Overview
mir-1 microRNA precursor family: a 77-nucleotide RNA from Bactrocera dorsalis. About the family: This family represents the microRNA (miRNA) mir-1 family. miRNAs are transcribed as ~70nt precursors (modelled here) and subsequently processed by the Dicer enzyme to give a ~22nt product. In this case the mature sequence comes from the 3' arm of the precursor. The extents of the hairpin precursors are not generally known and are estimated based on hairpin prediction. The literature on the family includes a 2001 paper in Cell by Ambros, "microRNAs: tiny regulators with great potential". Gene Ontology terms of the family: miRNA-mediated post-transcriptional gene silencing and RISC complex. The family's consensus secondary structure was predicted with RNAalifold.

[Rfam]
RNA sequence: AGUUUAGUUCCAUUCUUCCUUGCAUUCGAUAGUACUGAAAAUAUCAUAUGGAAUGUAAAGAAGUAUGGAGCAAGAAG
Numbered sequence: 001a002g003u004u005u006a007g008u009u010c011c012a013u014u015c016u017u018c019c020u021u022g023c024a025u026u027c028g029a030u031a032g033u034a035c036u037g038a039a040a041a042u043a044u045c046a047u048a049u050g051g052a053a054u055g056u057a058a059a060g061a062a063g064u065a066u067g068g069a070g071c072a073a074g075a076a077g
Stems, first nucleotide, its partner, number of pairs: 007071007015063004020058006027051001029049003